[Rfam]
RNA: mir-393 microRNA precursor family
RNA sequence: AAAGGAUGAAUCCGAAGAGAUCGCAUGAUCCAAAAACGAAGCAAAUUUUUGGAAUUGUUUUCUAUCUUUCGAUGACAAAAAUUAAAAUAAUAACUCAGUUUGAUUAGGAUCAAUGCGAUCCCUUUGGAUCCUUUCUC
Numbered sequence: 001a002a003a004g005g006a007u008g009a010a011u012c013c014g015a016a017g018a019g020a021u022c023g024c025a026u027g028a029u030c031c032a033a034a035a036a037c038g039a040a041g042c043a044a045a046u047u048u049u050u051g052g053a054a055u056u057g058u059u060u061u062c063u064a065u066c067u068u069u070c071g072a073u074g075a076c077a078a079a080a081a082u083u084a085a086a087a088u089a090a091u092a093a094c095u096c097a098g099u100u101u102g103a104u105u106a107g108g109a110u111c112a113a114u115g116c117g118a119u120c121c122c123u124u125u126g127g128a129u130c131c132u133u134u135c136u137c
Stems, first nucleotide, its partner, number of pairs: 003136004008131001010129008019120003023116003026112006035104001